[Rfam]
RNA sequence: CGCUCAUCCAGAGGGGCAGAGGGAUCGGCCCGAAGAAGCCCCGGCAACCCGAUCGUCAGGUACUCGCACGCGUGCGGGGCCCGGCGGUCACGGUGCCAAUUCCGACCCGCACUGCGGGACAGAUGAGGA
Numbered sequence: 001c002g003c004u005c006a007u008c009c010a011g012a013g014g015g016g017c018a019g020a021g022g023g024a025u026c027g028g029c030c031c032g033a034a035g036a037a038g039c040c041c042c043g044g045c046a047a048c049c050c051g052a053u054c055g056u057c058a059g060g061u062a063c064u065c066g067c068a069c070g071c072g073u074g075c076g077g078g079g080c081c082c083g084g085c086g087g088u089c090a091c092g093g094u095g096c097c098a099a100u101u102c103c104g105a106c107c108c109g110c111a112c113u114g115c116g117g118g119a120c121a122g123a124u125g126a127g128g129a
Stems, first nucleotide, its partner, number of pairs: 003127006013042005021031003025105004043097004048093002051089007101121001106118005

SAM riboswitch aptamer (S box leader): a 129-nucleotide RNA from Umezawaea tangerina. Rfam links the family to the GO term regulation of gene expression. The SAM riboswitch is found upstream of a number of genes which code for proteins involved in methionine or cysteine biosynthesis in Gram-positive bacteria. NCBI's taxonomy places the organism under Bacteria, Bacillati, Actinomycetes, Pseudonocardiaceae, Umezawaea.